RNA sequence: AUUGAAUUAGCAACAACACUUGGGAUUGAAGUGCUAAAUUGAAAUGGCACUUUUUGGGCACUUUUUGAGCAAAAAAAGGUGAUAAAAUGUUAUUAGUGAGAAGUGAAGAUGAUUACAAAAAUAAAAUCUUAUAUUGAGUCUGCGCUCCACUUCUCAUUUAUAAUCUUAUGAUGAUAUAGCAGGAGAUUGCUAUGUUGCCUGGCAGAGGCUUUGUAUCUGGCCAUUAGUCUCAACAGAUGACGACACUUCUGUUCAAUCUCAUAUCCUAUCCACACUGGAUGUAAAACACGCAUGUGGCGCUGACUGGUGCGUUAACCAGUUUUAAAAAUUAUAAUCCUUUCCAUCUGUUAAUAAUUGAGCAGGUGGUUUUU
Numbered sequence: 001a002u003u004g005a006a007u008u009a010g011c012a013a014c015a016a017c018a019c020u021u022g023g024g025a026u027u028g029a030a031g032u033g034c035u036a037a038a039u040u041g042a043a044a045u046g047g048c049a050c051u052u053u054u055u056g057g058g059c060a061c062u063u064u065u066u067g068a069g070c071a072a073a074a075a076a077a078g079g080u081g082a083u084a085a086a087a088u089g090u091u092a093u094u095a096g097u098g099a100g101a102a103g104u105g106a107a108g109a110u111g112a113u114u115a116c117a118a119a120a121a122u123a124a125a126a127u128c129u130u131a132u133a134u135u136g137a138g139u140c141u142g143c144g145c146u147c148c149a150c151u152u153c154u155c156a157u158u159u160a161u162a163a164u165c166u167u168a169u170g171a172u173g174a175u176a177u178a179g180c181a182g183g184a185g186a187u188u189g190c191u192a193u194g195u196u197g198c199c200u201g202g203c204a205g206a207g208g209c210u211u212u213g214u215a216u217c218u219g220g221c222c223a224u225u226a227g228u229c230u231c232a233a234c235a236g237a238u239g240a241c242g243a244c245a246c247u248u249c250u251g252u253u254c255a256a257u258c259u260c261a262u263a264u265c266c267u268a269u270c271c272a273c274a275c276u277g278g279a280u281g282u283a284a285a286a287c288a289c290g291c292a293u294g295u296g297g298c299g300c301u302g303a304c305u306g307g308u309g310c311g312u313u314a315a316c317c318a319g320u321u322u323u324a325a326a327a328a329u330u331a332u333a334a335u336c337c338u339u340u341c342c343a344u345c346u347g348u349u350a351a352u353a354a355u356u357g358a359g360c361a362g363g364u365g366g367u368u369u370u371u
Base pairs, nucleotide, nucleotide: 028064029063030062031061032060033059034058035057041055042054043052044051045049096262097261098260099259100258102257119135120134121132122131123130136254137253138252139251274320275319276318277317279293280292281291282290295314296313297312298311299310300309341366342365343364344363345362346361347360348359349358

A member of the RNA family "Listeria sRNA rliG" from Aquingentivirus A500, 371 nucleotides long. Taxonomically the source falls in Aquingentivirus A500 (Viruses, Duplodnaviria, Heunggongvirae, Uroviricota). For this family Rfam cites "The Listeria transcriptional landscape from saprophytism to virulence" (Toledo-Arana et al., Nature, 2009).